[Rfam]
RNA sequence: CCGUGCUAGACGGGGAGGUAGCGGUGCCCUGUAACUCGCAAUCCGCUCCAGCGAGGUUGAAUUCCUGUUUUAGGUUUUGUGAUGCAGGUUCCGGUAGGUUUCGUGCCGUGUUGACGGCAGGGUCCUCCGCGAGGGACGGCCAUGAACCCGGUCAGGUCCGGAAGGAAGCAGCCAUAAGUGGUUUAGUUCUUGUGUUGGAGGGUAGCUCGGCCUGAGCGACUCACUCUUAUUCGGCUGGAUCACAAUUAUCGAAAUCAGGUGCACGG
Dot-bracket structure: ((((((..(((((((.(.(...).).))))....(((((...........)))))))).....((((.((..(((...(((((.(((....(((((((....(...(((......(((.((((((((((((.(((((((((((......(((....(((....)))....)))....))))))..)))))))...))))))...)))).)))...)))..)....))))).)).))).)))))....)))..)).)))).))))))

Rfam assigns this 266-nucleotide RNA from Cohnella herbarum to the family "Bacterial large signal recognition particle RNA".
It scores 184 bits against the family's covariance model.
Rfam describes the family as follows. The signal recognition particle (SRP) is a universally conserved ribonucleoprotein involved in the co-translational targeting of proteins to membranes.
Lineage of the source: Bacteria > Bacillati > Bacillota > Paenibacillaceae > Cohnella.